[Rfam]
RNA sequence: CUGAAAAGACGAAGCCGGUUUUCACAGUGAUUUGGCAGAUGUAUUUGACUCUGAGAUCAUUGUGAAAGCUGAUUUUGUCGU
Numbered sequence: 001c002u003g004a005a006a007a008g009a010c011g012a013a014g015c016c017g018g019u020u021u022u023c024a025c026a027g028u029g030a031u032u033u034g035g036c037a038g039a040u041g042u043a044u045u046u047g048a049c050u051c052u053g054a055g056a057u058c059a060u061u062g063u064g065a066a067a068g069c070u071g072a073u074u075u076u077g078u079c080g081u
Base pairs, nucleotide, nucleotide: 009078010077011076012075013074014073016071017070018069019068020067021066022065023064024063025062028059029058030057031056032055033054
bantam microRNA precursor family: an 81-nucleotide sequence from Coptotermes formosanus. The organism belongs to Coptotermes, within Eukaryota. Rfam links the family to the GO terms miRNA-mediated post-transcriptional gene silencing and RISC complex. On this family, see Weaver et al., Genome Biol 2007: "Computational and transcriptional evidence for microRNAs in the honey bee genome".